The record is a 70-nucleotide RNA from Myripristis murdjan, which matches "Small nucleolar RNA SNORD73" in Rfam. By type it is a C/D-box small nucleolar RNA. Pairs were carried over by alignment from the consensus structure, which was predicted with PFOLD. The family has 25 seed sequences and 769 matches in Rfam 15.1. For this family Rfam cites "A novel snoRNA (U73) is encoded within the introns of the human and mouse ribosomal protein S3a genes" (Rebane et al., Gene, 1998). Taxonomically the source falls in Myripristis (Eukaryota, Eumetazoa, Teleostomi, Holocentriformes).

[Rfam]
RNA sequence: AAAGAGUGAUGACAAAAUGUUUCGGUCCCAGAUGAUGGUUCCUGAUUACUUAAUGAGAUCACCUGAUUUU
Numbered sequence: 001a002a003a004g005a006g007u008g009a010u011g012a013c014a015a016a017a018u019g020u021u022u023c024g025g026u027c028c029c030a031g032a033u034g035a036u037g038g039u040u041c042c043u044g045a046u047u048a049c050u051u052a053a054u055g056a057g058a059u060c061a062c063c064u065g066a067u068u069u070u
Stems, first nucleotide, its partner, number of pairs: 001070004
Dot-bracket structure: ((((..............................................................))))